RNA sequence: ACAAUGGAGAGUUUGAUCCUGGCUCAGGAUGAACGCUAGCGGCAGGCCUAAUACAUGCAAGUCGAACGGUGGUAGCAAUACCAUAGUGGCGCACGGGUGCGUAACGCGUAACCAACCUACCCAAAACUGGGGGAUAGCCCGCCGAAAGGCGGAUUAAUACCGCAUAAGACCAUGGCCUGGCAUCAGGCAGUGGUUAAAGAUUUAUUGGUUUUGGAUGGGGUUGCGUAGCAUUAGCUAGUUGGCGGGGUAACGGCCCACCAAGGCGACGAUGCUUAGGGGACCUGAGAGGGUGAUCCCCCACACUGGCACUGAGAUACGGGCCAGACUCCUACGGGAGGCAGCAGUAGGGAAUAUUGGGCAAUGGUCGAGAGACUGACCCAGCCAUGCCGCGUGCCGGAUGAAGGCCUUCUGGGUUGUAAACGGCUUUUCUCAGGGAAGAAAAAACGGGAUGCGUCCCGCUCUGACGGUACCUGAGGAAUAAGCACCGGCUAACUCCGUGCCAGCAGCCGCGGUAAUACGGAGGGUGCAAGCGUUGUCCGGAUUUAUUG
Numbered sequence: 001a002c003a004a005u006g007g008a009g010a011g012u013u014u015g016a017u018c019c020u021g022g023c024u025c026a027g028g029a030u031g032a033a034c035g036c037u038a039g040c041g042g043c044a045g046g047c048c049u050a051a052u053a054c055a056u057g058c059a060a061g062u063c064g065a066a067c068g069g070u071g072g073u074a075g076c077a078a079u080a081c082c083a084u085a086g087u088g089g090c091g092c093a094c095g096g097g098u099g100c101g102u103a104a105c106g107c108g109u110a111a112c113c114a115a116c117c118u119a120c121c122c123a124a125a126a127c128u129g130g131g132g133g134a135u136a137g138c139c140c141g142c143c144g145a146a147a148g149g150c151g152g153a154u155u156a157a158u159a160c161c162g163c164a165u166a167a168g169a170c171c172a173u174g175g176c177c178u179g180g181c182a183u184c185a186g187g188c189a190g191u192g193g194u195u196a197a198a199g200a201u202u203u204a205u206u207g208g209u210u211u212u213g214g215a216u217g218g219g220g221u222u223g224c225g226u227a228g229c230a231u232u233a234g235c236u237a238g239u240u241g242g243c244g245g246g247g248u249a250a251c252g253g254c255c256c257a258c259c260a261a262g263g264c265g266a267c268g269a270u271g272c273u274u275a276g277g278g279g280a281c282c283u284g285a286g287a288g289g290g291u292g293a294u295c296c297c298c299c300a301c302a303c304u305g306g307c308a309c310u311g312a313g314a315u316a317c318g319g320g321c322c323a324g325a326c327u328c329c330u331a332c333g334g335g336a337g338g339c340a341g342c343a344g345u346a347g348g349g350a351a352u353a354u355u356g357g358g359c360a361a362u363g364g365u366c367g368a369g370a371g372a373c374u375g376a377c378c379c380a381g382c383c384a385u386g387c388c389g390c391g392u393g394c395c396g397g398a399u400g401a402a403g404g405c406c407u408u409c410u411g412g413g414u415u416g417u418a419a420a421c422g423g424c425u426u427u428u429c430u431c432a433g434g435g436a437a438g439a440a441a442a443a444a445c446g447g448g449a450u451g452c453g454u455c456c457c458g459c460u461c462u463g464a465c466g467g468u469a470c471c472u473g474a475g476g477a478a479u480a481a482g483c484a485c486c487g488g489c490u491a492a493c494u495c496c497g498u499g500c501c502a503g504c505a506g507c508c509g510c511g512g513u514a515a516u517a518c519g520g521a522g523g524g525u526g527c528a529a530g531c532g533u534u535g536u537c538c539g540g541a542u543u544u545a546u547u548g
Stems, first nucleotide, its partner, number of pairs: 009025005027538004032534006039390006045383002047348001052346003056343003061090003066087002069084006097301003106226008116218002121214007129163001131161002137154001139152005169194005175188001177186003199206002227273003234264003239261004244256003276298004280291004303324005326337004354380001356379003362375005393424004403415004429475006438465001445458002482527005493522005503510002
Rfam assigns this 548-nucleotide part of an RNA from Hymenobacter crusticola to the family "Bacterial small subunit ribosomal RNA". Gene Ontology terms of the family: structural constituent of ribosome and ribosome. The organism belongs to Hymenobacter, within Bacteria.